[Rfam]
RNA: Small nucleolar RNA U83B
RNA sequence: UGAGUUUUGGGAUGAGACCCUGGAAUAAGUGCUGGACACAGUGCCUGAAUCAGACUGUGGAAAUAUUAAUUUAUUUUAUUUUUACUUA
Numbered sequence: 001u002g003a004g005u006u007u008u009g010g011g012a013u014g015a016g017a018c019c020c021u022g023g024a025a026u027a028a029g030u031g032c033u034g035g036a037c038a039c040a041g042u043g044c045c046u047g048a049a050u051c052a053g054a055c056u057g058u059g060g061a062a063a064u065a066u067u068a069a070u071u072u073a074u075u076u077u078a079u080u081u082u083u084a085c086u087u088a
Base pairs, nucleotide, nucleotide: 001088002087003086004085005084